[Rfam]
RNA: bZIP non canonical Hac1/Xbp1 intron
Organism: Melanomma pulvis-pyrius
RNA sequence: CCCCGAGCUCGACACGACACGAUAUCCUGCUGCGAUAUUGUGCGACCUGCAGUGUCAGUCGAGCUCGGAG
Numbered sequence: 001c002c003c004c005g006a007g008c009u010c011g012a013c014a015c016g017a018c019a020c021g022a023u024a025u026c027c028u029g030c031u032g033c034g035a036u037a038u039u040g041u042g043c044g045a046c047c048u049g050c051a052g053u054g055u056c057a058g059u060c061g062a063g064c065u066c067g068g069a070g
Stems, first nucleotide, its partner, number of pairs: 001070001003068005009062005021039006044056003